Shown here is a 224-nucleotide RNA from Vitis vinifera, a member of the family "MIR159 microRNA precursor family".
On this family, see Sunkar and Zhu, Plant Cell 2004: "Novel and stress-regulated microRNAs and other small RNAs from Arabidopsis".
NCBI's taxonomy places the organism under Eukaryota, Tracheophyta, Mesangiospermae, eudicotyledons, Vitis.
RNA sequence: GGAACAGCUGAAGAGCUCCUUUUAGUCCAAUAAAGAGGGCUGAGGGGCGGCCAGAGCUGCCAUCUCAUGCACUUGGCUAUGCUUAUUCUUUUCUCAAUCAAUUCGGUUCGAGUAUGGCUGUGGAGUGACAAAUGCUAAGUUUAGCCUGAUGCAUGACAUGGGAGCAACUCCUCCGCACGCUUUGCCCACUCAUUGGACUGAAGGGAGCUCCCAGGGCAGAUCUC
Numbered sequence: 001g002g003a004a005c006a007g008c009u010g011a012a013g014a015g016c017u018c019c020u021u022u023u024a025g026u027c028c029a030a031u032a033a034a035g036a037g038g039g040c041u042g043a044g045g046g047g048c049g050g051c052c053a054g055a056g057c058u059g060c061c062a063u064c065u066c067a068u069g070c071a072c073u074u075g076g077c078u079a080u081g082c083u084u085a086u087u088c089u090u091u092u093c094u095c096a097a098u099c100a101a102u103u104c105g106g107u108u109c110g111a112g113u114a115u116g117g118c119u120g121u122g123g124a125g126u127g128a129c130a131a132a133u134g135c136u137a138a139g140u141u142u143a144g145c146c147u148g149a150u151g152c153a154u155g156a157c158a159u160g161g162g163a164g165c166a167a168c169u170c171c172u173c174c175g176c177a178c179g180c181u182u183u184g185c186c187c188a189c190u191c192a193u194u195g196g197a198c199u200g201a202a203g204g205g206a207g208c209u210c211c212c213a214g215g216g217c218a219g220a221u222c223u224c
Stems, first nucleotide, its partner, number of pairs: 013210008023200007057164002060161003066155006